[Rfam]
RNA: Small nucleolar RNA snR9
Organism: Saccharomyces cerevisiae
RNA sequence: GGGAAUAUAAUACUAAAUACUCUGUUAUAUAGAACUUUCUACGCCUUUUCCUCUAUGGCUAUGAAAGCGUGGACAACGGAGAUCAAAUAGACCAAUUACUGAAUAUGGCUUUUGACAUAUCUUCUUCUUCAUGGGUGAGGAUUAAGCUGAUAUCCUGACCCACCUAUCAUUAGUCCUUCAGACAUAC
Numbered sequence: 001g002g003g004a005a006u007a008u009a010a011u012a013c014u015a016a017a018u019a020c021u022c023u024g025u026u027a028u029a030u031a032g033a034a035c036u037u038u039c040u041a042c043g044c045c046u047u048u049u050c051c052u053c054u055a056u057g058g059c060u061a062u063g064a065a066a067g068c069g070u071g072g073a074c075a076a077c078g079g080a081g082a083u084c085a086a087a088u089a090g091a092c093c094a095a096u097u098a099c100u101g102a103a104u105a106u107g108g109c110u111u112u113u114g115a116c117a118u119a120u121c122u123u124c125u126u127c128u129u130c131a132u133g134g135g136u137g138a139g140g141a142u143u144a145a146g147c148u149g150a151u152a153u154c155c156u157g158a159c160c161c162a163c164c165u166a167u168c169a170u171u172a173g174u175c176c177u178u179c180a181g182a183c184a185u186a187c
Stems, first nucleotide, its partner, number of pairs: 020081006034070002036067003040063002043059003099181005107175004132162005138156004